The record is a 135-nucleotide RNA sequence from Geococcyx californianus, which matches "Small nucleolar RNA SNORA58" in Rfam. From the family's description: ACA52 is a member of the H/ACA class of snoRNA that guide the sites of modification of uridines to pseudouridines. The family has 20 seed sequences and 471 matches in Rfam 15.1. Clan: SNORA44 clan. By type it is an H/ACA-box small nucleolar RNA. The base pairs follow the family's consensus structure, which was predicted with PFOLD. A search with the family's covariance model found it, with a score of 80 bits.
RNA sequence: CUGCAUACUAGUAGACCUUACCUGGUUCUCCCUCAUAGCCAGGCAAGGGGGACAGUGCAUGCUACAGCACACGGGGCGGCUGCAGGCUGCGAUCAGCCUCCAUGUGGCUGAUUGAACUGCAAUGCUCCGACAUCU
Numbered sequence: 001c002u003g004c005a006u007a008c009u010a011g012u013a014g015a016c017c018u019u020a021c022c023u024g025g026u027u028c029u030c031c032c033u034c035a036u037a038g039c040c041a042g043g044c045a046a047g048g049g050g051g052a053c054a055g056u057g058c059a060u061g062c063u064a065c066a067g068c069a070c071a072c073g074g075g076g077c078g079g080c081u082g083c084a085g086g087c088u089g090c091g092a093u094c095a096g097c098c099u100c101c102a103u104g105u106g107g108c109u110g111a112u113u114g115a116a117c118u119g120c121a122a123u124g125c126u127c128c129g130a131c132a133u134c135u
Stems, first nucleotide, its partner, number of pairs: 003062004008057001016048004021043004073128004081121003093111005